[Rfam]
RNA: c-di-GMP-I riboswitch aptamer
RNA sequence: UGAUUCAAAAGGCAAAACUGUCGAAAGACAGUGACGCAAAGCUGCGGGUCUAAGGCGAAAGCUAAGACAGCCGAGCUGCCGGU
Numbered sequence: 001u002g003a004u005u006c007a008a009a010a011g012g013c014a015a016a017a018c019u020g021u022c023g024a025a026a027g028a029c030a031g032u033g034a035c036g037c038a039a040a041g042c043u044g045c046g047g048g049u050c051u052a053a054g055g056c057g058a059a060a061g062c063u064a065a066g067a068c069a070g071c072c073g074a075g076c077u078g079c080c081g082g083u
Stems, first nucleotide, its partner, number of pairs: 012037002017032006040077004045073003048068003055062002